[Rfam]
RNA sequence: ACAAACCGCUUAAAUGAUGGGCCUUUAAAGCAGUAAUGUUUUAAUUAGCAUCGGGCUAUAUGCUGGAAUCUCCUAAAGCCUUAAGUACUCAUUUCAAUCUAAGGAUUGGAGUAGUGAAAAUCUUAAUGGAUAUUACAAUGGACAAUCAGCAGGAAACCAACGAGAAGCCUUAUAAGUUUCUUUAGUAGGAUCCUCAGAGACUACACGCCUGACAUCCUAUUUAAUAUAGGAUGAUGAUAUAGUCCAGUUAAUAUUGAAAGAUAUUA
Numbered sequence: 001a002c003a004a005a006c007c008g009c010u011u012a013a014a015u016g017a018u019g020g021g022c023c024u025u026u027a028a029a030g031c032a033g034u035a036a037u038g039u040u041u042u043a044a045u046u047a048g049c050a051u052c053g054g055g056c057u058a059u060a061u062g063c064u065g066g067a068a069u070c071u072c073c074u075a076a077a078g079c080c081u082u083a084a085g086u087a088c089u090c091a092u093u094u095c096a097a098u099c100u101a102a103g104g105a106u107u108g109g110a111g112u113a114g115u116g117a118a119a120a121u122c123u124u125a126a127u128g129g130a131u132a133u134u135a136c137a138a139u140g141g142a143c144a145a146u147c148a149g150c151a152g153g154a155a156a157c158c159a160a161c162g163a164g165a166a167g168c169c170u171u172a173u174a175a176g177u178u179u180c181u182u183u184a185g186u187a188g189g190a191u192c193c194u195c196a197g198a199g200a201c202u203a204c205a206c207g208c209c210u211g212a213c214a215u216c217c218u219a220u221u222u223a224a225u226a227u228a229g230g231a232u233g234a235u236g237a238u239a240u241a242g243u244c245c246a247g248u249u250a251a252u253a254u255u256g257a258a259a260g261a262u263a264u265u266a
Stems, first nucleotide, its partner, number of pairs: 005025001008022005029040003051212004056207001061151006071142003152193002157188001163183003167179001197245001199244005215231006251264005